[Rfam]
This 84-nucleotide sequence from Macaca fascicularis belongs to the Rfam family "mir-548 microRNA precursor family". The organism belongs to Macaca, within Eukaryota. The match comes from Rfam's covariance-model search (98 bits).
RNA sequence: UAUUAGGUUGGUACAAAAGUAUUUGCGGUUUUGGCCAUUGAAAGCAAUGGCCAAAACCACAAUUACUUUUGUACCAACCUAAUA
Number, nucleotide and partner (000 for none) at each position: 001u084002a083003u082004u081005a080006g079007g078008u077009u076010g075011g074012u073013a072014c071015a070016a069017a068018a067019g066020u065021a064022u000023u062024u061025g060026c000027g058028g057029u056030u055031u054032u053033g052034g051035c050036c049037a048038u047039u046040g045041a000042a000043a000044g000045c040046a039047a038048u037049g036050g035051c034052c033053a032054a031055a030056a029057c028058c027059a000060c025061a024062a023063u000064u021065a020066c019067u018068u017069u016070u015071g014072u013073a012074c011075c010076a009077a008078c007079c006080u005081a004082a003083u002084a001